[Rfam]
RNA sequence: UGAAAGGCAAAGAAGGCGCACAGUAGCUUUCAGAUGUCCGUCAGAGAGGAGAAGUCACCGGCUGAGAGCUUCUCCGGGCACCGUCUGAACAGUGAAUUUCCCGCCGGAGCCGCGGUCCUGAACAAAGUAGGGGCUGACGCUGCCUGCACGUUACGCAGGGUUGAGUGUCUGCCGUCAGGCAGGAAUCAGGGUGGUACCGCGAGACAGUCUCGUCCCUUUU
Numbered sequence: 001u002g003a004a005a006g007g008c009a010a011a012g013a014a015g016g017c018g019c020a021c022a023g024u025a026g027c028u029u030u031c032a033g034a035u036g037u038c039c040g041u042c043a044g045a046g047a048g049g050a051g052a053a054g055u056c057a058c059c060g061g062c063u064g065a066g067a068g069c070u071u072c073u074c075c076g077g078g079c080a081c082c083g084u085c086u087g088a089a090c091a092g093u094g095a096a097u098u099u100c101c102c103g104c105c106g107g108a109g110c111c112g113c114g115g116u117c118c119u120g121a122a123c124a125a126a127g128u129a130g131g132g133g134c135u136g137a138c139g140c141u142g143c144c145u146g147c148a149c150g151u152u153a154c155g156c157a158g159g160g161u162u163g164a165g166u167g168u169c170u171g172c173c174g175u176c177a178g179g180c181a182g183g184a185a186u187c188a189g190g191g192u193g194g195u196a197c198c199g200c201g202a203g204a205c206a207g208u209c210u211c212g213u214c215c216c217u218u219u220u
Stems, first nucleotide, its partner, number of pairs: 007110002015105004026093003030089001037078003048075008113136007138150002168183006188217004199213005
This 220-nucleotide sequence from Cuneatibacter caecimuris belongs to the Rfam family "T-box leader". The match comes from Rfam's covariance-model search (107 bits). Gene Ontology term of the family: tRNA binding.